[Rfam]
UnaL2 LINE 3' element: a 54-nucleotide sequence from Carassius auratus. By type it is a cis-regulatory element. The literature on the family includes a 2004 paper in RNA by Baba et al., "Solution structure of an RNA stem-loop derived from the 3' conserved region of eel LINE UnaL2". The eel long interspersed element (LINE) UnaL2 and its partner short interspersed element (SINE) share a conserved 3' tail containing a stem-loop that is critical for their retrotransposition. The match comes from Rfam's covariance-model search (57 bits). The family has 30 seed sequences and 493,311 matches in Rfam 15.1. Lineage of the source: Eukaryota > Eumetazoa > Teleostei > Otomorpha > Carassius. Its family is annotated with transposition, RNA-mediated in the Gene Ontology. The base pairs follow the family's consensus structure, which is taken from published work.
RNA sequence: UAUUGUCCCAUAUGUAAGUUGCUUUGGAUAAAAGCGUCUGCUAAAUGAGAAAAU
Numbered sequence: 001u002a003u004u005g006u007c008c009c010a011u012a013u014g015u016a017a018g019u020u021g022c023u024u025u026g027g028a029u030a031a032a033a034g035c036g037u038c039u040g041c042u043a044a045a046u047g048a049g050a051a052a053a054u
Base pairs, nucleotide, nucleotide: 013043014041015040016039020036021035022034023033024032025031